[Rfam]
RNA sequence: UGUCAGGGGCCGUGGAGGUCCGGCAGGCGAACCCCGCCAGGCCUUGAUCGGAGCAACGGUAGUUUGUCCGGGCUUGCCGCGGAUUCCCUGGCAGCA
Numbered sequence: 001u002g003u004c005a006g007g008g009g010c011c012g013u014g015g016a017g018g019u020c021c022g023g024c025a026g027g028c029g030a031a032c033c034c035c036g037c038c039a040g041g042c043c044u045u046g047a048u049c050g051g052a053g054c055a056a057c058g059g060u061a062g063u064u065u066g067u068c069c070g071g072g073c074u075u076g077c078c079g080c081g082g083a084u085u086c087c088c089u090g091g092c093a094g095c096a
Stems, first nucleotide, its partner, number of pairs: 004090005010082005015075001017074006023067006034059003042051002
The family of this 96-nucleotide sequence from Luteolibacter ambystomatis is "Bacterial small signal recognition particle RNA". The family is grouped with related families in Rfam's "SRP clan". The family's consensus secondary structure is taken from published work. About the family: The signal recognition particle (SRP) is a universally conserved ribonucleoprotein involved in the co-translational targeting of proteins to membranes. The match comes from Rfam's covariance-model search (51 bits).